This 122-nucleotide RNA sequence from Vulpes vulpes belongs to the Rfam family "U4 spliceosomal RNA". The family's RNA type in Rfam is spliceosomal small nuclear RNA. The match comes from Rfam's covariance-model search (55 bits).

[Rfam]
RNA sequence: AGCUUUGCACAGUGGCAGUAUCAUAGCCAAUGAGGUUUAUCCGAGGUGCGAUUAUUGCUAUAUAUGCAGGUAUAGAUAGAUAUAGUAUAUAGUAGCAAAACUUCUGAACAUCUCGGCAGAGA
Numbered sequence: 001a002g003c004u005u006u007g008c009a010c011a012g013u014g015g016c017a018g019u020a021u022c023a024u025a026g027c028c029a030a031u032g033a034g035g036u037u038u039a040u041c042c043g044a045g046g047u048g049c050g051a052u053u054a055u056u057g058c059u060a061u062a063u064a065u066g067c068a069g070g071u072a073u074a075g076a077u078a079g080a081u082a083u084a085g086u087a088u089a090u091a092g093u094a095g096c097a098a099a100a101c102u103u104c105u106g107a108a109c110a111u112c113u114c115g116g117c118a119g120a121g122a
Stems, first nucleotide, its partner, number of pairs: 020052003024048001026047003034042002071097001073095001075093001077091002080088003111122004